[Rfam]
RNA: mir-393 microRNA precursor family
Organism: Papaver somniferum
RNA sequence: UAAGGAGACAUCCAAAGGGAUCGCAUUGAUCCGUUGCACCUUCAUGCUCAUCUUCUUCUUUUUCAUCAUUGAUAUAUUCUGGUAAGUUAAGCUUUUGAUGAUGAUCAAGUAAGAACAUGUAUUUGUUGUUGAUACAUAUAUAUGUUUCGGAUCAUGCCAUCUCUUUGGAAGCCUCCUC
Numbered sequence: 001u002a003a004g005g006a007g008a009c010a011u012c013c014a015a016a017g018g019g020a021u022c023g024c025a026u027u028g029a030u031c032c033g034u035u036g037c038a039c040c041u042u043c044a045u046g047c048u049c050a051u052c053u054u055c056u057u058c059u060u061u062u063u064c065a066u067c068a069u070u071g072a073u074a075u076a077u078u079c080u081g082g083u084a085a086g087u088u089a090a091g092c093u094u095u096u097g098a099u100g101a102u103g104a105u106c107a108a109g110u111a112a113g114a115a116c117a118u119g120u121a122u123u124u125g126u127u128g129u130u131g132a133u134a135c136a137u138a139u140a141u142a143u144g145u146u147u148c149g150g151a152u153c154a155u156g157c158c159a160u161c162u163c164u165u166u167g168g169a170a171g172c173c174u175c176c177u178c
Stems, first nucleotide, its partner, number of pairs: 003177004009171001011169011023157004028153005036146001